Source information: Shown here is an 81-nucleotide RNA sequence, a member of the family "pemK RNA". Rfam's curators put it in the seed alignment.
[Rfam]
RNA sequence: AUAAUGAUACUCCCGCGUUGAACGCCCUCAAAGCAUUGCGCGGCGCACCCAUCAGCAGGGGCCGGGGUGAGAUUCCCGUGG
Numbered sequence: 001a002u003a004a005u006g007a008u009a010c011u012c013c014c015g016c017g018u019u020g021a022a023c024g025c026c027c028u029c030a031a032a033g034c035a036u037u038g039c040g041c042g043g044c045g046c047a048c049c050c051a052u053c054a055g056c057a058g059g060g061g062c063c064g065g066g067g068u069g070a071g072a073u074u075c076c077c078g079u080g081g
Base pairs, nucleotide, nucleotide: 012078013043014042015041016040017039018038044064045063048060049059050058065077066076067075